[Rfam]
RNA sequence: AUUGUGAGACCUCUGGCUACAACACAGGACACGGGAGCUUUUCUGAACCCUCGUGUCUUGUGUUGCAGCCAGAGGGGCACA
Numbered sequence: 001a002u003u004g005u006g007a008g009a010c011c012u013c014u015g016g017c018u019a020c021a022a023c024a025c026a027g028g029a030c031a032c033g034g035g036a037g038c039u040u041u042u043c044u045g046a047a048c049c050c051u052c053g054u055g056u057c058u059u060g061u062g063u064u065g066c067a068g069c070c071a072g073a074g075g076g077g078c079a080c081a
Stems, first nucleotide, its partner, number of pairs: 011074002015070004020065011032053004
RNA: mir-187 microRNA precursor family